[Rfam]
Shown here is a 74-nucleotide RNA from Haemonchus placei, a member of the family "mir-5928 microRNA precursor family". The organism belongs to Haemonchus, within Eukaryota.

RNA sequence: GGCCUAAAUUUGAAGUAGAGUAGUUUAGUAGGGUCAGAUAAUUCUUCUAAUCUCUCUACUUCAAAUUUGGCCCC
Numbered sequence: 001g002g003c004c005u006a007a008a009u010u011u012g013a014a015g016u017a018g019a020g021u022a023g024u025u026u027a028g029u030a031g032g033g034u035c036a037g038a039u040a041a042u043u044c045u046u047c048u049a050a051u052c053u054c055u056c057u058a059c060u061u062c063a064a065a066u067u068u069g070g071c072c073c074c
Stems, first nucleotide, its partner, number of pairs: 001073002004070006011063010022053002025050004030045001032043003

Description
It scores 61 bits against the family's covariance model.